[Rfam]
The record is a 39-nucleotide RNA from Halalkalibacter suaedae, which matches "Ribosomal protein L19 leader" in Rfam. Lineage of the source: Bacteria > Bacilli > Caryophanales > Bacillaceae > Halalkalibacter. This family is a putative r-protein leader autoregulatory structure found in B. subtilis and other low-GC Gram-positive bacteria. It is located in the 5' untranslated regions of mRNAs encoding ribosomal protein L19 (rplS). Its family is annotated with regulation of gene expression in the Gene Ontology. The literature on the family includes a 1994 paper in Prog Nucleic Acid Res Mol Biol by Zengel and Lindahl, "Diverse mechanisms for regulating ribosomal protein synthesis in Escherichia coli".
RNA sequence: ACGAUGUUCCGCUACAGGAUACCUUGGAAUGAACAUCUG
Numbered sequence: 001a002c003g004a005u006g007u008u009c010c011g012c013u014a015c016a017g018g019a020u021a022c023c024u025u026g027g028a029a030u031g032a033a034c035a036u037c038u039g
Base pairs, nucleotide, nucleotide: 003037004036005035006034007033008032009031013029015026016025017024018023